[Rfam]
Nucleotides: 144
Stems, first nucleotide, its partner, number of pairs: 001056003005052002014043006069137002072133001074131005091125011102113001
Number, partner (000 for none) and nucleotide at each position: 001056g002055c003054a004000a005052g006051g007000c008000u009000g010000a011000a012000u013000a014043c015042u016041g017040u018039g019038u020000u021000c022000u023000u024000u025000u026000u027000u028000u029000u030000a031000g032000u033000a034000g035000u036000u037000u038019a039018c040017a041016c042015a043014g044000c045000c046000a047000g048000a049000c050000a051006c052005c053000a054003u055002g056001c057000a058000a059000a060000g061000g062000u063000a064000a065000a066000g067000u068000c069137u070136u071000c072133u073000c074131u075130u076129u077128a078127a079000a080000a081000u082000g083000c084000c085000u086000a087000c088000a089000a090000c091125g092124g093123a094122u095121g096120g097119u098118a099117u100116g101115u102113a103000a104000g105000u106000u107000u108000g109000u110000u111000c112000a113102u114000a115101g116100c117099g118098u119097a120096u121095c122094a123093u124092u125091c126000a127078u128077u129076a130075a131074a132000a133072a134000u135000a136070a137069g138000a139000a140000a141000g142000a143000a144000a